About this RNA
The family of this 28-nucleotide RNA is "L19-Flavobacteria ribosomal protein leader". The base pairs follow the family's consensus structure, which is taken from published work. A reference for the family is Eckert and Weinberg (2020), "Discovery of 20 novel ribosomal leader candidates in bacteria and archaea", BMC Microbiol.

RNA sequence: UAACCGCUAACGAUAAUCGUGAAUGUUA
Numbered sequence: 001u002a003a004c005c006g007c008u009a010a011c012g013a014u015a016a017u018c019g020u021g022a023a024u025g026u027u028a
Stems, first nucleotide, its partner, number of pairs: 001028004008023001010020004